This 38-nucleotide sequence from Quercus lobata belongs to the Rfam family "Plastid psbT antisense RNA". Plastid-psbT-asRNA is an antisense RNA (asRNA) motif reported in Plastids It has been shown that psbT expression is controlled by two antisense RNAs originated from psbN transcription by the nuclear-encoded polymerase (NEP), in which the short antisense RNA hybridizes to psbT CDS, thereby stabilizing psbT transcript while blocking its translation during photooxidative stress. The match comes from Rfam's covariance-model search (49 bits).
[Rfam]
RNA sequence: GUAGUCGGAUCCCCAAGUUUUUAGAAUGUUCCAAAUUC
Dot-bracket structure: ..(.(.((....)).).).(((.((....)).)))...
Numbered sequence: 001g002u003a004g005u006c007g008g009a010u011c012c013c014c015a016a017g018u019u020u021u022u023a024g025a026a027u028g029u030u031c032c033a034a035a036u037u038c
Stems, first nucleotide, its partner, number of pairs: 003018001005016001007014002020035003024031002

On this family, see Zghidi-Abouzid et al., Nucleic Acids Res 2011: "Characterization of plastid psbT sense and antisense RNAs". The organism belongs to Quercus, within Eukaryota.